[Rfam]
RNA sequence: AUGUACUGCCUGUAGAUUGCGUUUCCUACGCGCUGUCAACGCCCAUCCGACACAGACUCGCGACGUUUUGUUAGCC
Numbered sequence: 001a002u003g004u005a006c007u008g009c010c011u012g013u014a015g016a017u018u019g020c021g022u023u024u025c026c027u028a029c030g031c032g033c034u035g036u037c038a039a040c041g042c043c044c045a046u047c048c049g050a051c052a053c054a055g056a057c058u059c060g061c062g063a064c065g066u067u068u069u070g071u072u073a074g075c076c
Base pairs, nucleotide, nucleotide: 002016004014005013006012020035021034023032025030047074049072050071051070052069
This 76-nucleotide RNA from Xanthomonas albilineans belongs to the Rfam family "Xanthomonas sRNA sX9". On this family, see Schmidtke et al., Nucleic Acids Res 2011: "Genome-wide transcriptome analysis of the plant pathogen Xanthomonas identifies sRNAs with putative virulence functions". By type it is a small RNA.